Notes
A member of the RNA family "Small nucleolar RNA SNORA40" from Cricetulus griseus, 125 nucleotides long. A search with the family's covariance model found it, with a score of 70 bits. Rfam 15.1 lists 2,550 matches to the family in 517 species. It is annotated as an H/ACA-box small nucleolar RNA. The organism belongs to Cricetulus, within Eukaryota. From the family's description: The snoRNA ACA 40 belongs to the H/ACA family of snoRNAs and guides the pseudouridylation of 28S rRNA subunit at position U4565. NB This family has a high threshold value to exclude a large number of closely related sequences that do not appear to have conserved H and ACA boxes, and may be pseudogenes.
[Rfam]
RNA sequence: AGCACCUCUGUGUGUUUGUUCAGCUGGUGGAGAAAGGAAUAGAAGAAUGGUCCAAAAGCAAACACUCCUUUGCAGCCAGAACUCAUUGUUCAGCAUGAGUUUUGAUACAUACAAGAAAGGAUAUG
Numbered sequence: 001a002g003c004a005c006c007u008c009u010g011u012g013u014g015u016u017u018g019u020u021c022a023g024c025u026g027g028u029g030g031a032g033a034a035a036g037g038a039a040u041a042g043a044a045g046a047a048u049g050g051u052c053c054a055a056a057a058g059c060a061a062a063c064a065c066u067c068c069u070u071u072g073c074a075g076c077c078a079g080a081a082c083u084c085a086u087u088g089u090u091c092a093g094c095a096u097g098a099g100u101u102u103u104g105a106u107a108c109a110u111a112c113a114a115g116a117a118a119g120g121a122u123a124u125g
Stems, first nucleotide, its partner, number of pairs: 002053001004051003009046001011044001015035003019031001024029001062122001065119002069115004077104010